[Rfam]
RNA sequence: UAAGGCAUUCCAGGGGCUGUAGCUGAAGCAUUUACCUUGCGGCCUUCAUAAGAUUCCUAUACAUCUGUGACUUUUGCU
Numbered sequence: 001u002a003a004g005g006c007a008u009u010c011c012a013g014g015g016g017c018u019g020u021a022g023c024u025g026a027a028g029c030a031u032u033u034a035c036c037u038u039g040c041g042g043c044c045u046u047c048a049u050a051a052g053a054u055u056c057c058u059a060u061a062c063a064u065c066u067g068u069g070a071c072u073u074u075u076g077c078u
Stems, first nucleotide, its partner, number of pairs: 013046006021078003025074003028040003051066004
Shown here is a 78-nucleotide RNA sequence from Microcaecilia unicolor, a member of the family "Mammalian CPEB3 ribozyme".
About the family: The mammalian CPEB3 ribozyme is a self cleaving RNA located in the second intron of the CPEB3 gene which belongs to a family of genes regulating messenger RNA polyadenylation.
The family's consensus secondary structure is taken from published work.
Taxonomically the source falls in Microcaecilia (Eukaryota, Chordata, Craniata, Gnathostomata).
It scores 36 bits against the family's covariance model.